About this RNA: Shown here is a 213-nucleotide sequence from Ricinus communis, a member of the family "Plant small nucleolar RNA U3". Rfam classes the family as a C/D-box small nucleolar RNA. The source organism's lineage runs through Eukaryota, Embryophyta, eudicotyledons, Euphorbiaceae and Ricinus. The family is grouped with related families in Rfam's "U3 clan". Rfam links the family to the GO terms RNA processing and nucleolus. Small nucleolar RNAs (snoRNAs) are involved in the processing and modification of rRNA in the nucleolus. There are two main classes of snoRNAs: the box C/D class, and the box H/ACA class. U3 snoRNA is a member of the box C/D class.
RNA sequence: ACGACCUUACUUGAACAGGAUCUGUUCUAUAGGAUCGUACCUCUGUGUCCUUUAUCACAAAGGAGACAGGAACUCACGUCUGGAAGAUGAUACAAAACCGUUUGAUCAGAGCGUGAUUAAUGGUUGAGUAUGCUCUCGGGCUUGCAACGCUGUAGAGGAUCGUUCCCAGUCAUGUAUAAUGGGUGGGAUGGUCAUUCGGUUGUCUGACAGACC
Numbered sequence: 001a002c003g004a005c006c007u008u009a010c011u012u013g014a015a016c017a018g019g020a021u022c023u024g025u026u027c028u029a030u031a032g033g034a035u036c037g038u039a040c041c042u043c044u045g046u047g048u049c050c051u052u053u054a055u056c057a058c059a060a061a062g063g064a065g066a067c068a069g070g071a072a073c074u075c076a077c078g079u080c081u082g083g084a085a086g087a088u089g090a091u092a093c094a095a096a097a098c099c100g101u102u103u104g105a106u107c108a109g110a111g112c113g114u115g116a117u118u119a120a121u122g123g124u125u126g127a128g129u130a131u132g133c134u135c136u137c138g139g140g141c142u143u144g145c146a147a148c149g150c151u152g153u154a155g156a157g158g159a160u161c162g163u164u165c166c167c168a169g170u171c172a173u174g175u176a177u178a179a180u181g182g183g184u185g186g187g188a189u190g191g192u193c194a195u196u197c198g199g200u201u202g203u204c205u206g207a208c209a210g211a212c213c
Base pairs, nucleotide, nucleotide: 001038002037003035005033006032007031013027014026015025016024017023018022043069044068045067046066048064049063050062051061052060053059078212079211080210081209082208097200098199099198100197103194104193105192106191107190108189110164111163112162113161120153121152122151123150124149125146126145129144130143132141133140134139166186167185168184170182171181172180173179
Dot-bracket structure: (((.(((.....((((((...))))))...))).).))....((((.((((((.....)))))).))))........(((((..............((((..((((((.((((......(((((((..((.(((....))).))))..))))).......)))).(((.((((.....)))).)))..))))))..)))).......))))).